[Rfam]
RNA: ZMP/ZTP riboswitch aptamer (pfl RNA motif)
RNA sequence: AGGCGGCAGAGCGACUGGCGCCAUCGAGGUGGAGCACCACCGGGGAGCGAUCACGUGAGCGGCAGGCACCGCGCGCCUGGGUGCCCCGC
Numbered sequence: 001a002g003g004c005g006g007c008a009g010a011g012c013g014a015c016u017g018g019c020g021c022c023a024u025c026g027a028g029g030u031g032g033a034g035c036a037c038c039a040c041c042g043g044g045g046a047g048c049g050a051u052c053a054c055g056u057g058a059g060c061g062g063c064a065g066g067c068a069c070c071g072c073g074c075g076c077c078u079g080g081g082u083g084c085c086c087c088g089c
Stems, first nucleotide, its partner, number of pairs: 003056003008051001011048002015044002017077005029040004066084005
Dot-bracket structure: ..[[[..[..[[..[[(((((.......((((....))))..]]..]]..]..]]].........[[[[[..)))))..]]]]].....